[Rfam]
Record summary: Rfam assigns this 55-nucleotide sequence to the family "chrB-b RNA". By type it is a cis-regulatory element.
RNA sequence: UGGGGGUAUAGCAGAUCCCCCGCUGUUUGCAAGACGCCUUGCGUCCAAAUUCUGC
Numbered sequence: 001u002g003g004g005g006g007u008a009u010a011g012c013a014g015a016u017c018c019c020c021c022g023c024u025g026u027u028u029g030c031a032a033g034a035c036g037c038c039u040u041g042c043g044u045c046c047a048a049a050u051u052c053u054g055c
Base pairs, nucleotide, nucleotide: 001022002021003020004019005018006017011055012054013053014052015051033045034044035043036042037041